A member of the RNA family "Histone 3' UTR stem-loop" from Strongylocentrotus purpuratus, 45 nucleotides long. It scores 38 bits against the family's covariance model. Lineage of the source: Eukaryota > Echinoidea > Camarodonta > Echinidea > Strongylocentrotus. The family's consensus secondary structure is taken from published work.
RNA sequence: CAAACGGCUCUUUUCAGAGCCACCAAACCUCCAAGAAAGAAAUAA
Numbered sequence: 001c002a003a004a005c006g007g008c009u010c011u012u013u014u015c016a017g018a019g020c021c022a023c024c025a026a027a028c029c030u031c032c033a034a035g036a037a038a039g040a041a042a043u044a045a
Stems, first nucleotide, its partner, number of pairs: 006021006